RNA sequence: AAAAACUUCGGUGAUGACGUUCGCCGUAAGAAUUCGUAAGAAUUGAUGACGCCUGCCCAAUA
Number, nucleotide and partner (000 for none) at each position: 001a000002a000003a000004a000005a000006c000007u000008u000009c000010g025011g024012u023013g022014a000015u000016g053017a000018c051019g050020u049021u048022c013023g012024c011025c010026g000027u000028a000029a000030g000031a000032a043033u042034u041035c040036g000037u000038a000039a000040g035041a034042a033043u032044u000045g000046a000047u000048g021049a020050c019051g018052c000053c016054u000055g000056c000057c000058c000059a000060a000061u000062a000
Fluoride riboswitch aptamer (crcB RNA motif): a 62-nucleotide sequence from Companilactobacillus versmoldensis. Rfam links the family to the GO terms response to fluoride and positive regulation of gene expression. The match comes from Rfam's covariance-model search (37 bits).